[Rfam]
Rfam assigns this 161-nucleotide RNA sequence from Volvox reticuliferus to the family "U1 spliceosomal RNA". U1 is a small nuclear RNA (snRNA) component of the spliceosome (involved in pre-mRNA splicing). Its 5' end forms complementary base pairs with the 5' splice junction, thus defining the 5' donor site of an intron. There are significant differences in sequence and secondary structure between metazoan and yeast U1 snRNAs, the latter being much longer (568 nucleotides as compared to 164 nucleotides in human). The source organism's lineage runs through Eukaryota, core chlorophytes, Chlorophyceae, Volvocaceae and Volvox. By type it is a spliceosomal small nuclear RNA. Pairs were carried over by alignment from the consensus structure, which is taken from published work.
RNA sequence: AUACUUACCUGGCCCGCUUCUCGAGGUGGUCAAUUUGGCCUCGGUUGUAUGAUCGGUCUUCGCCAUGCACUUCGCGAGGGCCUUUCGUAGUCGGCCCUUCGGGUGUCCGGCAGGGCUAAAUUUUUGUCAGGCUGAGGAUUUGCGCAUAGCGCGACCUCGGC
Numbered sequence: 001a002u003a004c005u006u007a008c009c010u011g012g013c014c015c016g017c018u019u020c021u022c023g024a025g026g027u028g029g030u031c032a033a034u035u036u037g038g039c040c041u042c043g044g045u046u047g048u049a050u051g052a053u054c055g056g057u058c059u060u061c062g063c064c065a066u067g068c069a070c071u072u073c074g075c076g077a078g079g080g081c082c083u084u085u086c087g088u089a090g091u092c093g094g095c096c097c098u099u100c101g102g103g104u105g106u107c108c109g110g111c112a113g114g115g116c117u118a119a120a121u122u123u124u125u126g127u128c129a130g131g132c133u134g135a136g137g138a139u140u141u142g143c144g145c146a147u148a149g150c151g152c153g154a155c156c157u158c159g160g161c
Base pairs, nucleotide, nucleotide: 012116013115014114015113016048017047020044021043023042024041025040026039027038049088050087051086055082056081057080059078060077061076062075063074090111091110092109093107094106095105097103098102132160133159134158135157136156141153142152143151144150